The family of this 35-nucleotide sequence from Sarcophilus harrisii is "Iron response element I". The organism belongs to Sarcophilus, within Eukaryota. Rfam classes the family as a cis-regulatory element. Rfam 15.1 lists 6,829 matches to the family in 599 species. The literature on the family includes a 1987 paper in Science by Hentze et al., "Identification of the iron-responsive element for the translational regulation of human ferritin mRNA".
RNA sequence: CUCGUUCUUGCUUCAACAGUGUUUGGAUGGAACAG
Numbered sequence: 001c002u003c004g005u006u007c008u009u010g011c012u013u014c015a016a017c018a019g020u021g022u023u024u025g026g027a028u029g030g031a032a033c034a035g
Base pairs, nucleotide, nucleotide: 001035002034004033005032006031007030008029010028012027013026014025015024016023017021